Shown here is a 48-nucleotide sequence from Yoonia tamlensis, a member of the family "SAM/SAH riboswitch aptamer". The base pairs follow the family's consensus structure, which is taken from published work. A reference for the family is Weickhmann et al. (2019), "The structure of the SAM/SAH-binding riboswitch", Nucleic Acids Res. The match comes from Rfam's covariance-model search (60 bits).
RNA sequence: GUUCUGUCACAACGGCUUCCUGACGUGGCGGAUGUAUUUAAUGGAGCA
Numbered sequence: 001g002u003u004c005u006g007u008c009a010c011a012a013c014g015g016c017u018u019c020c021u022g023a024c025g026u027g028g029c030g031g032a033u034g035u036a037u038u039u040a041a042u043g044g045a046g047c048a
Base pairs, nucleotide, nucleotide: 004031005030006029007028008027009026010025013022014021015047016046017045019044020043